A member of the RNA family "Fluoride riboswitch aptamer (crcB RNA motif)" from Filimonas lacunae, 70 nucleotides long. The family's consensus secondary structure is taken from published work. A search with the family's covariance model found it, with a score of 43 bits.
RNA sequence: UCGCAGUAAGGCGAUGGUGCUCCGCCUUAUCAACCGCCCUAACCAGAGGGACGAUGGCGCCUGCAAUAAC
Numbered sequence: 001u002c003g004c005a006g007u008a009a010g011g012c013g014a015u016g017g018u019g020c021u022c023c024g025c026c027u028u029a030u031c032a033a034c035c036g037c038c039c040u041a042a043c044c045a046g047a048g049g050g051a052c053g054a055u056g057g058c059g060c061c062u063g064c065a066a067u068a069a070c
Base pairs, nucleotide, nucleotide: 010026011025012024013023016061017060018059019058020057021056037050038049039048